[Rfam]
RNA sequence: AUGCCCAAUGAUUAUAACAAGACGCGUUAUUACGAGGAUGAACACUGGAGCUCCCCUUCUACCUUUCUGCUGUUCACUCCCCCCCCCCAAGUUAUCUAUCUUUGCCUUUAUUCCUCGUGCUUCUCCCCCCCCCCUUUUCUUGGAGUUUCACUCCUCUUCCUCCUUGGGAGUUUCCAGUGUCCUAUGAGCAAGAUUAUGAGAUAUGAGGGCAU
Numbered sequence: 001a002u003g004c005c006c007a008a009u010g011a012u013u014a015u016a017a018c019a020a021g022a023c024g025c026g027u028u029a030u031u032a033c034g035a036g037g038a039u040g041a042a043c044a045c046u047g048g049a050g051c052u053c054c055c056c057u058u059c060u061a062c063c064u065u066u067c068u069g070c071u072g073u074u075c076a077c078u079c080c081c082c083c084c085c086c087c088c089a090a091g092u093u094a095u096c097u098a099u100c101u102u103u104g105c106c107u108u109u110a111u112u113c114c115u116c117g118u119g120c121u122u123c124u125c126c127c128c129c130c131c132c133c134c135u136u137u138u139c140u141u142g143g144a145g146u147u148u149c150a151c152u153c154c155u156c157u158u159c160c161u162c163c164u165u166g167g168g169a170g171u172u173u174c175c176a177g178u179g180u181c182c183u184a185u186g187a188g189c190a191a192g193a194u195u196a197u198g199a200g201a202u203a204u205g206a207g208g209g210c211a212u
Stems, first nucleotide, its partner, number of pairs: 001212006035124004
The family of this 212-nucleotide sequence from Ophiophagus hannah is "Small nucleolar RNA SNORD97". Taxonomically the source falls in Ophiophagus (Eukaryota, Metazoa, Sauria, Lepidosauria). The family's RNA type in Rfam is C/D-box small nucleolar RNA. A reference for the family is Vitali et al. (2003), "Identification of 13 novel human modification guide RNAs", Nucleic Acids Res.